[Rfam]
RNA sequence: GCAGAGCUGCAGCCAUGCCUGCAGGUGCUAUUGAGCCGGACGAACACCCUACGGGCAGGGUGAGCAACAUCGGC
Numbered sequence: 001g002c003a004g005a006g007c008u009g010c011a012g013c014c015a016u017g018c019c020u021g022c023a024g025g026u027g028c029u030a031u032u033g034a035g036c037c038g039g040a041c042g043a044a045c046a047c048c049c050u051a052c053g054g055g056c057a058g059g060g061u062g063a064g065c066a067a068c069a070u071c072g073g074c
Stems, first nucleotide, its partner, number of pairs: 001028003008023005035074005045062006
Dot-bracket structure: (((....(((((......)))))..)))......(((((.....((((((......)))))).......)))))
A member of the RNA family "Burkholderiales-2 RNA" from Kerstersia gyiorum, 74 nucleotides long. It is annotated as a cis-regulatory element. The organism belongs to Kerstersia, within Bacteria. A search with the family's covariance model found it, with a score of 96 bits.